[Rfam]
RNA sequence: CGGAGCAGGCCGGAAGGUCGGUUCUGACCGGGCAGAAGUCAGCAGAGGUCGUAGUACCAGCCGGGAUGGCCGCCGAUGGGUGGUGGGCUGGGAAGGGC
Numbered sequence: 001c002g003g004a005g006c007a008g009g010c011c012g013g014a015a016g017g018u019c020g021g022u023u024c025u026g027a028c029c030g031g032g033c034a035g036a037a038g039u040c041a042g043c044a045g046a047g048g049u050c051g052u053a054g055u056a057c058c059a060g061c062c063g064g065g066a067u068g069g070c071c072g073c074c075g076a077u078g079g080g081u082g083g084u085g086g087g088c089u090g091g092g093a094a095g096g097g098c
Stems, first nucleotide, its partner, number of pairs: 001026002004023003008019004039046002048098003057091006